[Rfam]
The record is a 134-nucleotide sequence from Octodon degus, which matches "Small nucleolar RNA SNORA1" in Rfam.
By type it is an H/ACA-box small nucleolar RNA.
The family has 29 seed sequences and 1,282 matches in Rfam 15.1.
About the family: ACA1 is a member of the H/ACA class of snoRNA that guide the sites of modification of uridines to pseudouridines.

RNA sequence: UGCUUCCUUCUGGAUUAAAAUGGGCAUUUUUGAUUAGUGUCCAAAAGUGGUCAUUGUGGCUGAAAGUGAGACACAGGUUACGUGUCCAUCACAGUAAGUGUAUUACAGUGGUGACAUUGAAACCUGUAACAUUU
Dot-bracket structure: .(((.(..............(((((((.........)))))))............).)))............(((((.........((((((...............)))))).........))))).......